[Rfam]
RNA: L17-Actino-Proteobacteria ribosomal protein leader
RNA sequence: GGCGAGCCCCGUGUCGGGCCCGCCCUUCUCACCCGGUACCUGAUACGGCCGGAGUGA
Numbered sequence: 001g002g003c004g005a006g007c008c009c010c011g012u013g014u015c016g017g018g019c020c021c022g023c024c025c026u027u028c029u030c031a032c033c034c035g036g037u038a039c040c041u042g043a044u045a046c047g048g049c050c051g052g053a054g055u056g057a
Stems, first nucleotide, its partner, number of pairs: 001024004006019004029057003033052005